[Rfam]
RNA sequence: ACCGGUCCUCGGUAGUGGUCCUCGGGACGAGAUCUCGCCCGUGGACUUCGAUCGAAGACCGGC
Numbered sequence: 001a002c003c004g005g006u007c008c009u010c011g012g013u014a015g016u017g018g019u020c021c022u023c024g025g026g027a028c029g030a031g032a033u034c035u036c037g038c039c040c041g042u043g044g045a046c047u048u049c050g051a052u053c054g055a056a057g058a059c060c061g062g063c
Stems, first nucleotide, its partner, number of pairs: 002062006009055005017047005023041004028037003